[Rfam]
RNA sequence: CUCUUAUCGAGAGAGGUGGAGGGACUGGCCCGAUGAAACCCGGCAACCGUAAAACGAAUCUUUUCGUUCAAAAGGUGCUAAAUCCUGCAAAGCCAAAUGCUUUGAAAGAUGAGAU
Numbered sequence: 001c002u003c004u005u006a007u008c009g010a011g012a013g014a015g016g017u018g019g020a021g022g023g024a025c026u027g028g029c030c031c032g033a034u035g036a037a038a039c040c041c042g043g044c045a046a047c048c049g050u051a052a053a054a055c056g057a058a059u060c061u062u063u064u065c066g067u068u069c070a071a072a073a074g075g076u077g078c079u080a081a082a083u084c085c086u087g088c089a090a091a092g093c094c095a096a097a098u099g100c101u102u103u104g105a106a107a108g109a110u111g112a113g114a115u
Stems, first nucleotide, its partner, number of pairs: 002114007013041001015040003021031003025087001027085002042079004047075002050070001052068001083107001088104006
Shown here is a 115-nucleotide RNA from Alkalihalobacillus alcalophilus, a member of the family "SAM riboswitch aptamer (S box leader)".
NCBI's taxonomy places the organism under Bacteria, Bacillati, Bacilli, Bacillaceae, Alkalihalobacillus alcalophilus.